[Rfam]
RNA sequence: AAGUAUCUCCGAGUUCACCGAGUCUGAGUCUGUCGGUGAAUAGGAGUAACGGCUGGUUGGCACAGCCUUCGACGUUCUUGUUUGACAACGAAACUGGUGCGUUCGCACCUCAAGAACACGUCACGUCGUAACCCACAAUAUCCCAACCCAGCGGUGCGGUGC
Numbered sequence: 001a002a003g004u005a006u007c008u009c010c011g012a013g014u015u016c017a018c019c020g021a022g023u024c025u026g027a028g029u030c031u032g033u034c035g036g037u038g039a040a041u042a043g044g045a046g047u048a049a050c051g052g053c054u055g056g057u058u059g060g061c062a063c064a065g066c067c068u069u070c071g072a073c074g075u076u077c078u079u080g081u082u083u084g085a086c087a088a089c090g091a092a093a094c095u096g097g098u099g100c101g102u103u104c105g106c107a108c109c110u111c112a113a114g115a116a117c118a119c120g121u122c123a124c125g126u127c128g129u130a131a132c133c134c135a136c137a138a139u140a141u142c143c144c145a146a147c148c149c150a151g152c153g154g155u156g157c158g159g160u161g162c
Base pairs, nucleotide, nucleotide: 003050004049007046008045009044010043013041014040015039016038017037018036019035020034021033051067052066053065054064055063070128071127072126073125074124075123077120079118080117081116082115083114096109097108098107099106100105141156143154144153147151